[Rfam]
RNA: ASpks TB sRNA
RNA sequence: UUUGACCGAACCGAGCCACAACGGCUCCUCGCGGUCCUGACCGUAGGUCGCCAGCAGCGCCUGCGCCUC
Numbered sequence: 001u002u003u004g005a006c007c008g009a010a011c012c013g014a015g016c017c018a019c020a021a022c023g024g025c026u027c028c029u030c031g032c033g034g035u036c037c038u039g040a041c042c043g044u045a046g047g048u049c050g051c052c053a054g055c056a057g058c059g060c061c062u063g064c065g066c067c068u069c
Base pairs, nucleotide, nucleotide: 014026015025016024017023028065030063032059033058037054038053039052041050043048